[Rfam]
RNA: Bacterial RNase P class A
RNA sequence: CGAGUAAGCCAGAUGGUCGCGUACAAUAUGUACGAGGAAAGUCCGAGCUCCAUAGGGCAAGGUGCCGGGUAAUACCCGGUGGAGGUGACUCCAAGGAAAGUGCAACAGAGAUAUACCGCCUGCUAUUUAUUUUGAUAUGAAUUGUAAUUUUAUUAAGUACGUUAUACAUAUCGAAAUAAGUAGCGGGUAAGGGUGGAAAGGCGAGGUAAGAGCUCACCAGCAUCCAGGCGACUGGAAUGCUCUGUAAACCCCACCUGGAGCAAGGUAAAAUAGGAGGGAAUAAUAAGUGGCCCGCUUAACCCUCGGGUAAAACCGCUAGAGGUAUCAGGCAACUGAUAUCGUAGAUAGAUGACCAUCUAAAACAGAACUCGGCUUAUAGACUUGCUCGUAAU
Numbered sequence: 001c002g003a004g005u006a007a008g009c010c011a012g013a014u015g016g017u018c019g020c021g022u023a024c025a026a027u028a029u030g031u032a033c034g035a036g037g038a039a040a041g042u043c044c045g046a047g048c049u050c051c052a053u054a055g056g057g058c059a060a061g062g063u064g065c066c067g068g069g070u071a072a073u074a075c076c077c078g079g080u081g082g083a084g085g086u087g088a089c090u091c092c093a094a095g096g097a098a099a100g101u102g103c104a105a106c107a108g109a110g111a112u113a114u115a116c117c118g119c120c121u122g123c124u125a126u127u128u129a130u131u132u133u134g135a136u137a138u139g140a141a142u143u144g145u146a147a148u149u150u151u152a153u154u155a156a157g158u159a160c161g162u163u164a165u166a167c168a169u170a171u172c173g174a175a176a177u178a179a180g181u182a183g184c185g186g187g188u189a190a191g192g193g194u195g196g197a198a199a200g201g202c203g204a205g206g207u208a209a210g211a212g213c214u215c216a217c218c219a220g221c222a223u224c225c226a227g228g229c230g231a232c233u234g235g236a237a238u239g240c241u242c243u244g245u246a247a248a249c250c251c252c253a254c255c256u257g258g259a260g261c262a263a264g265g266u267a268a269a270a271u272a273g274g275a276g277g278g279a280a281u282a283a284u285a286a287g288u289g290g291c292c293c294g295c296u297u298a299a300c301c302c303u304c305g306g307g308u309a310a311a312a313c314c315g316c317u318a319g320a321g322g323u324a325u326c327a328g329g330c331a332a333c334u335g336a337u338a339u340c341g342u343a344g345a346u347a348g349a350u351g352a353c354c355a356u357c358u359a360a361a362a363c364a365g366a367a368c369u370c371g372g373c374u375u376a377u378a379g380a381c382u383u384g385c386u387c388g389u390a391a392u
Stems, first nucleotide, its partner, number of pairs: 001388008010379001011377001012357007020034006039375003043372005048260004055293004060256005065079005080094001081092004095251002100249002102245003116192002118188022200218002203215003220240001223237001224235004264314003274304005284298005321340008